[Rfam]
RNA: RT-3 RNA
RNA sequence: AAUCGGAGACUCUAUAUAAGGUACGAGAUUACCACCGAUAUUCUCCGAGGGAUUAGAACCUCGGCAACAGCAUAAUAAUAUAAUAUAUAUAUUUUAUGGAAAGCCGGAACAUAACAUUAACCAUAUGUGGGGAGUGGCUUGACUUCUCCCCACAAGACCGGAAGGCGGU
Numbered sequence: 001a002a003u004c005g006g007a008g009a010c011u012c013u014a015u016a017u018a019a020g021g022u023a024c025g026a027g028a029u030u031a032c033c034a035c036c037g038a039u040a041u042u043c044u045c046c047g048a049g050g051g052a053u054u055a056g057a058a059c060c061u062c063g064g065c066a067a068c069a070g071c072a073u074a075a076u077a078a079u080a081u082a083a084u085a086u087a088u089a090u091a092u093u094u095u096a097u098g099g100a101a102a103g104c105c106g107g108a109a110c111a112u113a114a115c116a117u118u119a120a121c122c123a124u125a126u127g128u129g130g131g132g133a134g135u136g137g138c139u140u141g142a143c144u145u146c147u148c149c150c151c152a153c154a155a156g157a158c159c160g161g162a163a164g165g166c167g168g169u
Base pairs, nucleotide, nucleotide: 003048004047005046006045008043009042013040014039015038020033021032022031023030050060051059061107062106063105064104065103071098072097073096074095075094120169121168122167124165126162128160129159130158137151141148142147